[Rfam]
About this RNA:
A member of the RNA family "azaaromatic riboswitch aptamer (yjdF RNA)" from Faecalibacterium sp. An121, 99 nucleotides long.
RNA sequence: AAGAGCGAAGCAGAAAACACAGUCCCGGCUGGUAGUCCGGGCGCAGCGCAUGCUGUCAGUAACCCUCCUCCUCGGUCGUCCAUUCUUCGCCGUACAACG
Numbered sequence: 001a002a003g004a005g006c007g008a009a010g011c012a013g014a015a016a017a018c019a020c021a022g023u024c025c026c027g028g029c030u031g032g033u034a035g036u037c038c039g040g041g042c043g044c045a046g047c048g049c050a051u052g053c054u055g056u057c058a059g060u061a062a063c064c065c066u067c068c069u070c071c072u073c074g075g076u077c078g079u080c081c082a083u084u085c086u087u088c089g090c091c092g093u094a095c096a097a098c099g
Stems, first nucleotide, its partner, number of pairs: 005090006022042002025040004043056005067075002

The source organism's lineage runs through Bacteria, Bacillati, Bacillota, Oscillospiraceae and Faecalibacterium.